RNA sequence: GAAUAAUUCAUGCCGAAUCUCAGAAAAUUUACCGCACUGGGAGCGGGGGAACCAAGUAUCUGGGGUGAAUCCCGAAAUAGUCAUAAAAGGUUGGAAAAACGUGACUUGAUUUCGGAUAGGGUAUCUUUUACCGAACCCGUCAGCUAACCUCGCAGGCGCGAAAAGAAAGGGGAA
Numbered sequence: 001g002a003a004u005a006a007u008u009c010a011u012g013c014c015g016a017a018u019c020u021c022a023g024a025a026a027a028u029u030u031a032c033c034g035c036a037c038u039g040g041g042a043g044c045g046g047g048g049g050a051a052c053c054a055a056g057u058a059u060c061u062g063g064g065g066u067g068a069a070u071c072c073c074g075a076a077a078u079a080g081u082c083a084u085a086a087a088a089g090g091u092u093g094g095a096a097a098a099a100c101g102u103g104a105c106u107u108g109a110u111u112u113c114g115g116a117u118a119g120g121g122u123a124u125c126u127u128u129u130a131c132c133g134a135a136c137c138c139g140u141c142a143g144c145u146a147a148c149c150u151c152g153c154a155g156g157c158g159c160g161a162a163a164a165g166a167a168a169g170g171g172g173a174a
Stems, first nucleotide, its partner, number of pairs: 011158004018042006043153006053062002063138003072115007119132002122130001
c-di-AMP riboswitch aptamer (ydaO/yuaA leader): a 174-nucleotide sequence from Pelotomaculum isophthalicicum. This family represents a conserved RNA structure found upstream of the ydaO and yuaA genes in Bacillus subtilis and related genes in other bacteria. Lineage of the source: Bacteria > Bacillota > Eubacteriales > Desulfotomaculaceae > Pelotomaculum isophthalicicum. It scores 84 bits against the family's covariance model.